Shown here is a 427-nucleotide RNA sequence from Szabonella alba, a member of the family "Bacterial RNase P class A".
Rfam classes the family as a ribozyme.
The match comes from Rfam's covariance-model search (262 bits).
Gene Ontology terms of the family: dimeric ribonuclease P complex, ribonuclease P activity and tRNA processing.
RNA sequence: GCGGAAGGCCGGAUGGUCGCGGGCGCAUUCUGGUCCUGCAAAGGAUACCGGAUGCGCACGAGGAAAGUCCGGACUCCAUGAAGCAAGGGUGCCGGGUAACGCCCGGCCGGGGUAACCCGAGGGAAAGCGCCACAGAGAAGAGACAGCCGUCGCAAUCCGGCAACGGGACGCGGCGGUGAUGGUGAAACGGUGGGGUAAGAGCCCACCGGGGGCCGGGCAACCGGAACCGCAUGGCAAGCCCCACCCGGAGCAAUGCCGAAUAGGGGCCUCACGCGGGCAGGUCGGACAACCGAUACCGCCGCAGGGACGCUUCAGCCCAGAGGCCCGGGUUGGCAGCUUGACCGCACCGGCAACGGAUGCGGCAGAGGAAUGAUCAUCCAGGGGGGCAACCCCCGGACAGAAUCCGGCUUACAGGCCUUCCGCGCGU
Number, nucleotide and partner (000 for none) at each position: 001g423002c422003g421004g420005a419006a418007g417008g416009c415010c414011g412012g378013a377014u376015g375016g374017u373018c372019g000020c060021g059022g000023g057024c056025g055026c054027a053028u052029u051030c050031u000032g000033g000034u000035c000036c000037u000038g000039c000040a000041a000042a000043g000044g000045a000046u000047a000048c000049c000050g030051g029052a028053u027054g026055c025056g024057c023058a000059c021060g020061a000062g000063g000064a000065a410066a409067g408068u000069c407070c406071g405072g404073a403074c250075u249076c248077c247078a000079u000080g000081a000082a000083g312084c000085a000086a000087g246088g245089g244090u243091g242092c106093c105094g104095g103096g102097u000098a000099a000100c000101g000102c096103c095104c094105g093106g092107c121108c119109g118110g117111g116112g000113u000114a000115a000116c111117c110118c109119g108120a000121g107122g241123g240124a000125a000126a000127g239128c238129g235130c234131c233132a000133c000134a000135g000136a000137g000138a000139a000140g000141a000142g000143a000144c181145a180146g177147c176148c175149g174150u173151c172152g171153c170154a000155a000156u000157c000158c000159g000160g000161c000162a000163a000164c000165g000166g000167g000168a000169c000170g153171c152172g151173g150174c149175g148176g147177u146178g000179a000180u145181g144182g000183u000184g000185a000186a000187a000188c000189g207190g206191u205192g204193g203194g202195g000196u000197a000198a000199g000200a000201g000202c194203c193204c192205a191206c190207c189208g230209g228210g227211g000212g000213c224214c223215g222216g221217g000218c000219a000220a000221c216222c215223g214224g213225a000226a000227c210228c209229g000230c208231a000232u000233g131234g130235c129236a000237a000238g128239c127240c123241c122242c091243a090244c089245c088246c087247g077248g076249a075250g074251c000252a000253a000254u335255g334256c333257c332258g000259a000260a000261u000262a000263g000264g326265g325266g324267c323268c322269u321270c000271a000272c000273g000274c000275g000276g000277g000278c000279a000280g000281g000282u000283c000284g000285g000286a000287c000288a000289a000290c000291c000292g000293a000294u000295a000296c000297c000298g000299c000300c000301g000302c000303a000304g000305g318306g317307a000308c315309g000310c000311u000312u083313c000314a000315g308316c000317c306318c305319a000320g000321a269322g268323g267324c266325c265326c264327g000328g000329g000330u000331u000332g257333g256334c255335a254336g000337c000338u000339u000340g000341a000342c362343c361344g360345c359346a358347c356348c355349g354350g000351c000352a000353a000354c349355g348356g347357a000358u346359g345360c344361g343362g342363c000364a000365g000366a000367g000368g000369a000370a000371u000372g018373a017374u016375c015376a014377u013378c012379c000380a000381g000382g000383g000384g000385g000386g000387c000388a000389a000390c000391c000392c000393c000394c000395g000396g000397a000398c000399a000400g000401a000402a000403u073404c072405c071406g070407g069408c067409u066410u065411a000412c011413a000414g010415g009416c008417c007418u006419u005420c004421c003422g002423c001424g000425c000426g000427u000